[Rfam]
Record summary: ZMP/ZTP riboswitch aptamer (pfl RNA motif): an 87-nucleotide RNA from Winkia neuii.
RNA sequence: UUUACCUGUCGCAACUGGCGCCUAAGGUGGAUACCACCGGGGAGCGGCAUUGUAGAGGCCCACCAGUCGCUCGCCUGGGCUGGAGCC
Numbered sequence: 001u002u003u004a005c006c007u008g009u010c011g012c013a014a015c016u017g018g019c020g021c022c023u024a025a026g027g028u029g030g031a032u033a034c035c036a037c038c039g040g041g042g043a044g045c046g047g048c049a050u051u052g053u054a055g056a057g058g059c060c061c062a063c064c065a066g067u068c069g070c071u072c073g074c075c076u077g078g079g080c081u082g083g084a085g086c087c
Stems, first nucleotide, its partner, number of pairs: 003052002007049006015041002017075004027037004064082005